BsrC: an 88-nucleotide sequence from Desemzia incerta. The family's RNA type in Rfam is small RNA. Rfam 15.1 lists 572 matches to the family in 553 species. The match comes from Rfam's covariance-model search (62 bits). NCBI's taxonomy places the organism under Bacteria, Bacillati, Bacillota, Bacilli, Desemzia. Rfam describes the family as follows. The 301 nucleotide sequence from Kouji Nakamura has been trimmed to a highly conserved ~85 nucleotide long core to form this family. A reference for the family is Saito et al. (2008), "Novel small RNA-encoding genes in the intergenic regions of Bacillus subtilis", Gene.
RNA sequence: UUCAAUUUAUACAAUGUAUUCCCUAACCUCUAAUACAUCCUUGUAGCCCCAUAGCUACUCCAGUGUGAAUAAACUUGCCGCGUAAAAC
Numbered sequence: 001u002u003c004a005a006u007u008u009a010u011a012c013a014a015u016g017u018a019u020u021c022c023c024u025a026a027c028c029u030c031u032a033a034u035a036c037a038u039c040c041u042u043g044u045a046g047c048c049c050c051a052u053a054g055c056u057a058c059u060c061c062a063g064u065g066u067g068a069a070u071a072a073a074c075u076u077g078c079c080g081c082g083u084a085a086a087a088c
Stems, first nucleotide, its partner, number of pairs: 036067002040063002043058005